[Rfam]
RNA sequence: GUGGGUCGGCCCGUCGUCGAGGACCCGGCGGGCCGGGGGACACCGCUGCCUACAUCCCCGCGGGCGGCGGUGGGGUCCGGGAGGGCAUGCGGAUGCCCUCCCGGGCUGUG
Number, nucleotide and partner (000 for none) at each position: 001g000002u000003g000004g000005g000006u000007c035008g034009g033010c032011c031012c030013g029014u028015c027016g026017u000018c000019g000020a000021g000022g000023a000024c000025c000026c016027g015028g014029c013030g012031g011032g010033c009034c008035g007036g041037g000038g000039g000040a000041c036042a000043c070044c069045g068046c067047u066048g065049c064050c063051u062052a000053c060054a000055u000056c000057c000058c000059c000060g053061c000062g051063g050064g049065c048066g047067g046068c045069g044070g043071u000072g000073g000074g107075g106076u105077c104078c103079g102080g101081g100082a099083g098084g097085g096086c095087a094088u093089g000090c000091g000092g000093a088094u087095g086096c085097c084098c083099u082100c081101c080102c079103g078104g077105g076106c075107u074108g000109u000110g000
Record summary
Streptomyces RNA 4115: a 110-nucleotide RNA sequence from Kitasatospora sp. Root187. A reference for the family is Vockenhuber et al. (2011), "Deep sequencing-based identification of small non-coding RNAs in Streptomyces coelicolor", RNA Biol. The family's RNA type in Rfam is small RNA. About the family: Identified by deep sequencing of transcriptome at the end of exponential growth phase. Sequencing size consistent with notrthern blot size. Streptomyces specific.